Shown here is a 90-nucleotide RNA sequence from Vicingus serpentipes, a member of the family "TPP riboswitch aptamer (THI element)". It scores 62 bits against the family's covariance model. The family's consensus secondary structure is taken from published work.
RNA sequence: GGAAAGCUUUAGGGGUGUCAUAAGACUGAGAUUAUACCCUUUUGACCUGAUGUUGGUAAUUCAGCCGAAGGGAAAAGUUUCUGAGCAAGU
Number, nucleotide and partner (000 for none) at each position: 001g000002g000003a000004a000005a000006g078007c077008u076009u075010u074011a040012g039013g038014g037015g000016u034017g026018u025019c024020a000021u000022a000023a000024g019025a018026c017027u000028g000029a000030g000031a000032u000033u000034a016035u000036a000037c014038c013039c012040u011041u000042u000043u000044g000045a000046c071047c070048u069049g000050a000051u000052g065053u064054u063055g062056g000057u000058a000059a000060u000061u000062c055063a054064g053065c052066c000067g000068a000069a048070g047071g046072g000073a000074a010075a009076a008077g007078u006079u000080u000081c000082u000083g000084a000085g000086c000087a000088a000089g000090u000